[Rfam]
RNA sequence: CCAUUCGUCAAAGUGGCUCUGAUGUGUUCUGUCAGUGUUUUUUUCAUAUCACAGCCAGCUUUGAUGAGUAGAA
Number, nucleotide and partner (000 for none) at each position: 001c000002c000003a000004u000005u067006c066007g065008u064009c063010a062011a061012a060013g059014u057015g056016g055017c054018u053019c000020u051021g050022a049023u000024g000025u048026g047027u046028u000029c000030u000031g000032u000033c000034a000035g000036u000037g000038u000039u000040u000041u000042u000043u000044u000045c000046a027047u026048a025049u022050c021051a020052c000053a018054g017055c016056c015057a014058g000059c013060u012061u011062u010063g009064a008065u007066g006067a005068g000069u000070a000071g000072a000073a000

This 73-nucleotide sequence from Leptotrombidium deliense belongs to the Rfam family "mir-2 microRNA precursor family". Pairs were carried over by alignment from the consensus structure, which was predicted with PFOLD. On this family, see Ambros, Cell 2001: "microRNAs: tiny regulators with great potential". It scores 60 bits against the family's covariance model. Gene Ontology terms of the family: miRNA-mediated post-transcriptional gene silencing and RISC complex.